[Rfam]
RNA sequence: GAAAAUAUAAAUCUCCGAGCCUUUAUGUCUGUGGGGGAUUAUCCUAUGAGAUAAAGGCCGUCUUAGGGUAUUAAUGGAAACGUUAAUGCCUCCCGUUUGAAAAGGAGAAGGAUUUUAGUGUUU
Numbered sequence: 001g002a003a004a005a006u007a008u009a010a011a012u013c014u015c016c017g018a019g020c021c022u023u024u025a026u027g028u029c030u031g032u033g034g035g036g037g038a039u040u041a042u043c044c045u046a047u048g049a050g051a052u053a054a055a056g057g058c059c060g061u062c063u064u065a066g067g068g069u070a071u072u073a074a075u076g077g078a079a080a081c082g083u084u085a086a087u088g089c090c091u092c093c094c095g096u097u098u099g100a101a102a103a104g105g106a107g108a109a110g111g112a113u114u115u116u117a118g119u120g121u122u123u
Stems, first nucleotide, its partner, number of pairs: 004116001012108005019058008028049002033045004066091011093099001
This 123-nucleotide sequence from Aceticella autotrophica belongs to the Rfam family "Molybdenum/Tungsten riboswitch aptamer (Moco RNA motif)". The organism belongs to Aceticella, within Bacteria. It scores 75 bits against the family's covariance model.